Record summary:
Nuclear RNase P: a 329-nucleotide RNA sequence from Suricata suricatta. Lineage of the source: Eukaryota > Sarcopterygii > Dipnotetrapodomorpha > Laurasiatheria > Suricata. A search with the family's covariance model found it, with a score of 202 bits.

Nucleotides: 329
Base pairs, nucleotide, nucleotide: 001329002328003327009320013272014271015270017268021065022064023063024062034051035050036049037048038047039045075312076311077310078309079308083250084249085248086247093107094106095105096104097103108126109125110124111123112122113121127246128245129244130243131242132241133240148230149229150228151227152226274300275299276298277297278296279295280294
Number, partner (000 for none) and nucleotide at each position: 001329u002328g003327a004000u005000a006000u007000a008000a009320a010000a011000u012000g013272u014271c015270a016000u017268c018000a019000c020000u021065g022064g023063g024062g025000c026000u027000a028000u029000g030000a031000g032000c033000u034051g035050a036049g037048u038047g039045c040000u041000u042000u043000g044000u045039g046000u047038c048037a049036c050035u051034c052000u053000a054000c055000c056000c057000c058000a059000u060000g061000u062024c063023c064022c065021c066000u067000g068000g069000g070000a071000a072000g073000g074000u075312u076311u077310g078309a079308g080000a081000c082000a083250g084249g085248c086247c087000a088000a089000a090000a091000g092000u093107g094106a095105c096104c097103c098000u099000a100000a101000c102000a103097g104096g105095g106094u107093c108126c109125u110124c111123c112122u113121u114000g115000a116000g117000u118000u119000u120000c121113a122112g123111g124110g125109a126108g127246g128245u129244g130243a131242g132241u133240u134000c135000c136000c137000a138000g139000a140000g141000a142000u143000c144000a145000g146000g147000u148230c149229u150228c151227u152226g153000c154000c155000u156000a157000a158000g159000g160000u161000u162000g163000g164000a165000c166000u167000g168000g169000g170000c171000a172000g173000g174000a175000g176000a177000u178000g179000c180000c181000c182000u183000g184000g185000u186000c187000c188000c189000c190000a191000c192000c193000c194000u195000u196000g197000g198000g199000g200000a201000g202000g203000a204000g205000g206000c207000u208000g209000g210000c211000a212000g213000a214000u215000g216000c217000c218000u219000c220000c221000u222000u223000a224000g225000c226152u227151g228150g229149a230148g231000c232000u233000u234000g235000g236000a237000a238000c239000a240133g241132a242131c243130u244129u245128g246127c247086g248085g249084c250083c251000a252000g253000c254000a255000a256000g257000u258000g259000a260000g261000u262000u263000c264000a265000a266000u267000g268017g269000c270015u271014g272013a273000g274300c275299u276298g277297a278296g279295g280294u281000a282000c283000c284000c285000u286000g287000c288000c289000c290000a291000g292000g293000g294280g295279c296278c297277u298276c299275a300274g301000a302000a303000c304000c305000c306000a307000a308079u309078u310077c311076a312075g313000g314000c315000u316000a317000c318000u319000c320009u321000c322000c323000u324000a325000g326000u327003u328002u329001a